[Rfam]
RNA sequence: UUUUUUCCGUCGGGGUGCCUUUAAUAAAGGGCUGAGAGGUGUUUAACAUCAACCCGGUGAACCUGAUCCGAUUAGUAUCGGCGUAGGGAACGGAUUUGCGCUUUCA
Dot-bracket structure: .....(((((((((..(((((......)))))......((((...))))...)))).....((((..((((......))))..))))..)))))............
The record is a 106-nucleotide RNA from Alteromonas sp. KUL49, which matches "TPP riboswitch aptamer (THI element)" in Rfam. Pairs were carried over by alignment from the consensus structure, which is taken from published work. Vitamin B(1) in its active form thiamin pyrophosphate (TPP) is an essential coenzyme that is synthesised by coupling of pyrimidine and thiazole moieties in bacteria. The previously detected thiamin-regulatory element, thi box was extended, resulting in a new, highly conserved RNA secondary structure, the THI element, which is widely distributed in eubacteria and also occurs in some archaea. Analysis of operon structures identified a large number of new candidate thiamin-regulated genes, mostly transporters, in various prokaryotic organisms. The THI element is a riboswitch that directly binds to TPP to regulate gene expression through a variety of mechanisms in archaea, bacteria and eukaryotes. through a variety of mechanisms in archaea, bacteria and eukaryotes. Tandem TPP riboswitches have been reported where both TPP riboswitches respond independently to TPP. The structure of TPP riboswitch has been reported for Escherichia coli and Arabidopsis thaliana. NCBI's taxonomy places the organism under Bacteria, Pseudomonadati, Pseudomonadota, Gammaproteobacteria, Alteromonas. Its family is annotated with thiamine pyrophosphate binding in the Gene Ontology.